A member of the RNA family "Small nucleolar RNA Z102/R77" from Punica granatum, 87 nucleotides long. Lineage of the source: Eukaryota > Tracheophyta > Magnoliopsida > rosids > Punica. Pairs were carried over by alignment from the consensus structure, which was predicted with PFOLD. Rfam 15.1 lists 1,346 matches to the family in 224 species. The match comes from Rfam's covariance-model search (83 bits). A reference for the family is Chen et al. (2003), "The high diversity of snoRNAs in plants: identification and comparative study of 120 snoRNA genes from Oryza sativa", Nucleic Acids Res.
[Rfam]
RNA sequence: GGAUGAGCUGAUGAUGUUUAUGUUUCCCUAUUGGUUUGAUUGCCGUGAUGAUGGCAACGCAUCUGUAUUAGCUCUAUCUGAUCACCC
Number, nucleotide and partner (000 for none) at each position: 001g000002g086003a000004u084005g083006a000007g000008c000009u000010g000011a000012u000013g000014a000015u000016g000017u000018u000019u000020a000021u000022g000023u000024u000025u000026c000027c000028c000029u000030a000031u000032u000033g000034g000035u000036u000037u000038g058039a000040u000041u056042g055043c054044c053045g000046u000047g000048a000049u000050g000051a000052u000053g044054g043055c042056a041057a000058c038059g000060c000061a000062u000063c000064u000065g000066u000067a000068u000069u000070a000071g000072c000073u000074c000075u000076a000077u000078c000079u000080g000081a000082u000083c005084a004085c000086c002087c000